[Rfam]
RNA sequence: GCCGGUCCUCGGUAGUGGCUCCCGGGAGUUCCUCCCGUGGGCUUCGAUCGAUGGCCGGC
Numbered sequence: 001g002c003c004g005g006u007c008c009u010c011g012g013u014a015g016u017g018g019c020u021c022c023c024g025g026g027a028g029u030u031c032c033u034c035c036c037g038u039g040g041g042c043u044u045c046g047a048u049c050g051a052u053g054g055c056c057g058g059c
Base pairs, nucleotide, nucleotide: 001059002058003057004056005055006054007053009051010050011049012048013047017043018042019041020040021039023037024036025035026034027033028032